[Rfam]
Overview: This 68-nucleotide RNA from Homo sapiens belongs to the Rfam family "mir-6505 microRNA precursor family". Rfam's curators put it in the seed alignment. Taxonomically the source falls in Homo (Eukaryota, Bilateria, Euteleostomi, Catarrhini).
RNA sequence: UUGGAAUAGGGGAUAUCUCAGCAUGUUGAGCCCUGUCUCUGGGGAGCUGACUUCUACCUCUUCCAAAG
Numbered sequence: 001u002u003g004g005a006a007u008a009g010g011g012g013a014u015a016u017c018u019c020a021g022c023a024u025g026u027u028g029a030g031c032c033c034u035g036u037c038u039c040u041g042g043g044g045a046g047c048u049g050a051c052u053u054c055u056a057c058c059u060c061u062u063c064c065a066a067a068g
Base pairs, nucleotide, nucleotide: 001066002065003064004063005062006061008059009058010057011055012054013053018050019049020048021047022046024045026043027042029040030039